A member of the RNA family "Archaeal large subunit ribosomal RNA" from Halobaculum gomorrense, 530 nucleotides of a longer RNA. A search with the family's covariance model found it, with a score of 2750 bits. The source organism's lineage runs through Archaea, Methanobacteriati, Halobacteriales, Haloferacaceae and Halobaculum.
RNA sequence: CUACUGUGCCAGUUGGUGAAUGGCUCGGCUCGAGAGCCGACGACGGACGUGCCAAGCUGCGAUAAGCCGUAGGGAGCCGCAUGGAGGCGAAGAACUACGGAUCUCCGAAUGGGAAUCCCUCUACAAUUGCCACGCGCAAUGGGGAACGUUCCGAAUUGAAACAUCUCAGUAGGAACAGGAAGAAAAAUCAAACCGAGAUGUCGUUACUAACGGCGAGUGAACGCGACACAGUCCAAACCGAAGCCCUCACGGGCAAUGUGGUGUUCGGGCUGAUACCAAGCAGUUCGAGUUCGUGAGAAGUCUCCUGGAACGGAGCACGAUACAGGGCGACAGUCCCGUAUCACGAACACGACCUGCGGAUCAGUUCCCAGAGUAGCGGGGGUUGGAUAUCCCUCGUGAACAUCUCAGGCAUCGACUGAGAAGACUAAACACUCCUCGAGACCGAUAGCGAACAAGUAGCGUGAGCGAACGCUGAAAAGCACCCCGAGAAGGGCGGUGCAAUAGGGCCUGAAAUCAACUGGCGAUAGAGC
Numbered sequence: 001c002u003a004c005u006g007u008g009c010c011a012g013u014u015g016g017u018g019a020a021u022g023g024c025u026c027g028g029c030u031c032g033a034g035a036g037c038c039g040a041c042g043a044c045g046g047a048c049g050u051g052c053c054a055a056g057c058u059g060c061g062a063u064a065a066g067c068c069g070u071a072g073g074g075a076g077c078c079g080c081a082u083g084g085a086g087g088c089g090a091a092g093a094a095c096u097a098c099g100g101a102u103c104u105c106c107g108a109a110u111g112g113g114a115a116u117c118c119c120u121c122u123a124c125a126a127u128u129g130c131c132a133c134g135c136g137c138a139a140u141g142g143g144g145a146a147c148g149u150u151c152c153g154a155a156u157u158g159a160a161a162c163a164u165c166u167c168a169g170u171a172g173g174a175a176c177a178g179g180a181a182g183a184a185a186a187a188u189c190a191a192a193c194c195g196a197g198a199u200g201u202c203g204u205u206a207c208u209a210a211c212g213g214c215g216a217g218u219g220a221a222c223g224c225g226a227c228a229c230a231g232u233c234c235a236a237a238c239c240g241a242a243g244c245c246c247u248c249a250c251g252g253g254c255a256a257u258g259u260g261g262u263g264u265u266c267g268g269g270c271u272g273a274u275a276c277c278a279a280g281c282a283g284u285u286c287g288a289g290u291u292c293g294u295g296a297g298a299a300g301u302c303u304c305c306u307g308g309a310a311c312g313g314a315g316c317a318c319g320a321u322a323c324a325g326g327g328c329g330a331c332a333g334u335c336c337c338g339u340a341u342c343a344c345g346a347a348c349a350c351g352a353c354c355u356g357c358g359g360a361u362c363a364g365u366u367c368c369c370a371g372a373g374u375a376g377c378g379g380g381g382g383u384u385g386g387a388u389a390u391c392c393c394u395c396g397u398g399a400a401c402a403u404c405u406c407a408g409g410c411a412u413c414g415a416c417u418g419a420g421a422a423g424a425c426u427a428a429a430c431a432c433u434c435c436u437c438g439a440g441a442c443c444g445a446u447a448g449c450g451a452a453c454a455a456g457u458a459g460c461g462u463g464a465g466c467g468a469a470c471g472c473u474g475a476a477a478a479g480c481a482c483c484c485c486g487a488g489a490a491g492g493g494c495g496g497u498g499c500a501a502u503a504g505g506g507c508c509u510g511a512a513a514u515c516a517a518c519u520g521g522c523g524a525u526a527g528a529g530c
Stems, first nucleotide, its partner, number of pairs: 007523010022508001023472002027443002029440006035433002044107004048061003067100006076088003111120003126140005147178001148176005158165002188196002200227005210218002230426004238261003243254004270364004280357004294343003300316001302315004319323001325337003376397007404420005459466002